[Rfam]
RNA sequence: CAGGGGUAUGCCGAAAACCCUCGAUAGAGUAGGCA
Numbered sequence: 001c002a003g004g005g006g007u008a009u010g011c012c013g014a015a016a017a018c019c020c021u022c023g024a025u026a027g028a029g030u031a032g033g034c035a
Base pairs, nucleotide, nucleotide: 002021003020004019005018010034011033012032
RNA: DUF805b RNA